[Rfam]
This 130-nucleotide RNA from Streptomyces sp. BA2 belongs to the Rfam family "Streptomyces RNA 5676".
It scores 127 bits against the family's covariance model.
Identified by deep sequencing of transcriptome at the end of exponential growth phase.
The base pairs follow the family's consensus structure.
RNA sequence: AGAUGAGAGAAACACCCCGCCCACAGGGGACUGUGGGCGACACCGGGACGGAGCCUCCCCAGCCCCGUCUUGGUCGUGCCCUCGCGCACACACCCGGAGUCACUGGCUCUGGAACUCCUCACCGAUCGGA
Numbered sequence: 001a002g003a004u005g006a007g008a009g010a011a012a013c014a015c016c017c018c019g020c021c022c023a024c025a026g027g028g029g030a031c032u033g034u035g036g037g038c039g040a041c042a043c044c045g046g047g048a049c050g051g052a053g054c055c056u057c058c059c060c061a062g063c064c065c066c067g068u069c070u071u072g073g074u075c076g077u078g079c080c081c082u083c084g085c086g087c088a089c090a091c092a093c094c095c096g097g098a099g100u101c102a103c104u105g106g107c108u109c110u111g112g113a114a115c116u117c118c119u120c121a122c123c124g125a126u127c128g129g130a
Stems, first nucleotide, its partner, number of pairs: 004121004009117002018039009042074006049067003053063002076089004094112008122129002
Dot-bracket structure: ...((((.((.......(((((((((....)))))))))..((((((.(((.((.......)).))).)))))).((((......))))....((((((((...))))))))...))))))((....)).